The family of this 111-nucleotide RNA from Tolumonas auensis is "Ribosomal S15 leader". The E. coli Ribosomal S15 gene 5' UTR can form two alternative structures. Taxonomically the source falls in Tolumonas auensis (Bacteria, Pseudomonadati, Gammaproteobacteria, Aeromonadales).
RNA sequence: UCUGUGGGCUGAAUUAGUGAUCGGCUCACAGUCCAUUAAACUCAGGAGUACACUAUGUCACUAAAUGCUGAAACUAAAGCCAAGAUCGUUGCUGAUUUCUCUCGCGGUACC
Numbered sequence: 001u002c003u004g005u006g007g008g009c010u011g012a013a014u015u016a017g018u019g020a021u022c023g024g025c026u027c028a029c030a031g032u033c034c035a036u037u038a039a040a041c042u043c044a045g046g047a048g049u050a051c052a053c054u055a056u057g058u059c060a061c062u063a064a065a066u067g068c069u070g071a072a073a074c075u076a077a078a079g080c081c082a083a084g085a086u087c088g089u090u091g092c093u094g095a096u097u098u099c100u101c102u103c104g105c106g107g108u109a110c111c
Stems, first nucleotide, its partner, number of pairs: 007026006042065001045062002048059001